[Rfam]
traJ-II RNA: a 103-nucleotide RNA from Verticiella sediminum. The family has 47 seed sequences and 174 matches in Rfam 15.1. It is annotated as a cis-regulatory element. It scores 108 bits against the family's covariance model.
RNA sequence: GGGCAGGAUAGGUGAAGUAGGCCCACCCACAAGCGGGUGUUCCUUCUUCACUGUCCCUUAUUCGCGCCGAAGGCACUCAACGGGAAUCCUGCUCUGCGAGGCU
Numbered sequence: 001g002g003g004c005a006g007g008a009u010a011g012g013u014g015a016a017g018u019a020g021g022c023c024c025a026c027c028c029a030c031a032a033g034c035g036g037g038u039g040u041u042c043c044u045u046c047u048u049c050a051c052u053g054u055c056c057c058u059u060a061u062u063c064g065c066g067c068c069g070a071a072g073g074c075a076c077u078c079a080a081c082g083g084g085a086a087u088c089c090u091g092c093u094c095u096g097c098g099a100g101g102c103u
Stems, first nucleotide, its partner, number of pairs: 001094009012051006019044003024039005054085004064076001066074003